[Rfam]
RNA sequence: GAGUGAAUGGCAGGGCAAUUCUCCUUUGGCAAAGAAAAACCAAUACUGCUUGGCUUGGCUAUACUACAUCUUCUUUGCCGAGGGAGAAAGCCCUGCUAUUCAUAU
Numbered sequence: 001g002a003g004u005g006a007a008u009g010g011c012a013g014g015g016c017a018a019u020u021c022u023c024c025u026u027u028g029g030c031a032a033a034g035a036a037a038a039a040c041c042a043a044u045a046c047u048g049c050u051u052g053g054c055u056u057g058g059c060u061a062u063a064c065u066a067c068a069u070c071u072u073c074u075u076u077g078c079c080g081a082g083g084g085a086g087a088a089a090g091c092c093c094u095g096c097u098a099u100u101c102a103u104a105u
Stems, first nucleotide, its partner, number of pairs: 005101005011095006021086004027080009
RNA: mir-399 microRNA precursor family